[Rfam]
RNA sequence: CAUGCGGACCGGGCCCCUCUGGCGUGCGCUUUUCCAGCCCACGUGAUGUCGGACCGCAUCG
Numbered sequence: 001c002a003u004g005c006g007g008a009c010c011g012g013g014c015c016c017c018u019c020u021g022g023c024g025u026g027c028g029c030u031u032u033u034c035c036a037g038c039c040c041a042c043g044u045g046a047u048g049u050c051g052g053a054c055c056g057c058a059u060c061g
Stems, first nucleotide, its partner, number of pairs: 006055002009052004022044005028038003
A member of the RNA family "terC RNA" from Erythrobacter sp. SD-21, 61 nucleotides long. NCBI's taxonomy places the organism under Bacteria, Pseudomonadati, Pseudomonadota, Erythrobacteraceae, Erythrobacter. It is one of the family's seed sequences. It is annotated as a cis-regulatory element.